The record is a 114-nucleotide RNA from Mesobacillus foraminis, which matches "TPP riboswitch aptamer (THI element)" in Rfam.
Taxonomically the source falls in Mesobacillus (Bacteria, Bacillota, Bacilli, Bacillaceae).
Pairs were carried over by alignment from the consensus structure, which is taken from published work.
A search with the family's covariance model found it, with a score of 74 bits.
RNA sequence: UAUGUGCACUGGGGGUGCCGGGAAAUGGCCGGCUGAGAGGAAGACCCAACCUGUCUUCGACCCUUUUUACCUGAUCUGGUUAAUGCCAGCGUAGGGAAGUAUUUUUGCUGUGUU
Numbered sequence: 001u002a003u004g005u006g007c008a009c010u011g012g013g014g015g016u017g018c019c020g021g022g023a024a025a026u027g028g029c030c031g032g033c034u035g036a037g038a039g040g041a042a043g044a045c046c047c048a049a050c051c052u053g054u055c056u057u058c059g060a061c062c063c064u065u066u067u068u069a070c071c072u073g074a075u076c077u078g079g080u081u082a083a084u085g086c087c088a089g090c091g092u093a094g095g096g097a098a099g100u101a102u103u104u105u106u107g108c109u110g111u112g113u114u
Stems, first nucleotide, its partner, number of pairs: 006102001008100003011064004017033005040058005070095004076089004